[Rfam]
Source information: Rfam assigns this 73-nucleotide RNA sequence from Aromatoleum aromaticum to the family "Plasmid transferred anti-sense RNA". Rfam links the family to the GO terms negative regulation of translation and mRNA binding. Rfam classes the family as an antitoxin RNA. The family's consensus secondary structure is taken from published work. NCBI's taxonomy places the organism under Bacteria, Pseudomonadota, Rhodocyclales, Rhodocyclaceae, Aromatoleum aromaticum. It is one of the family's seed sequences.
RNA sequence: UUGCCAUGAUUCACCUCUCCAUCAGGUGUUGAGUGGACGUGCCGGCUGGCCCGCAAUGCCGGCCGGCACGCUU
Numbered sequence: 001u002u003g004c005c006a007u008g009a010u011u012c013a014c015c016u017c018u019c020c021a022u023c024a025g026g027u028g029u030u031g032a033g034u035g036g037a038c039g040u041g042c043c044g045g046c047u048g049g050c051c052c053g054c055a056a057u058g059c060c061g062g063c064c065g066g067c068a069c070g071c072u073u
Base pairs, nucleotide, nucleotide: 004036005035006034012028013027014026015025016024039069040068041067042066043065044064045063046062047061048060049059050058